[Rfam]
RNA sequence: UUACCUGGACGGGGUCGACGAGCGAUCAAGAAGGCUCGUGGCCUAGGUUAGUGGCCCACAUUGCACUUGGUGGGUGCGCUGGCCUAUCAUCUCCCCAAGUGGGAGAGUGAACGUCAUAAUUUGUGGUAGAGGGGGUACGCGUUCGCGCGGCCCCUGC
Numbered sequence: 001u002u003a004c005c006u007g008g009a010c011g012g013g014g015u016c017g018a019c020g021a022g023c024g025a026u027c028a029a030g031a032a033g034g035c036u037c038g039u040g041g042c043c044u045a046g047g048u049u050a051g052u053g054g055c056c057c058a059c060a061u062u063g064c065a066c067u068u069g070g071u072g073g074g075u076g077c078g079c080u081g082g083c084c085u086a087u088c089a090u091c092u093c094c095c096c097a098a099g100u101g102g103g104a105g106a107g108u109g110a111a112c113g114u115c116a117u118a119a120u121u122u123g124u125g126g127u128a129g130a131g132g133g134g135g136u137a138c139g140c141g142u143u144c145g146c147g148c149g150g151c152c153c154c155u156g157c
Stems, first nucleotide, its partner, number of pairs: 008115004012044006019038005045085003049082001051079003055076001056074002058071002087110003090106001092103001094102002131155004138149004

This 157-nucleotide sequence belongs to the Rfam family "U1 spliceosomal RNA". The sequence is in the family's curated seed alignment. The family's consensus secondary structure is taken from published work.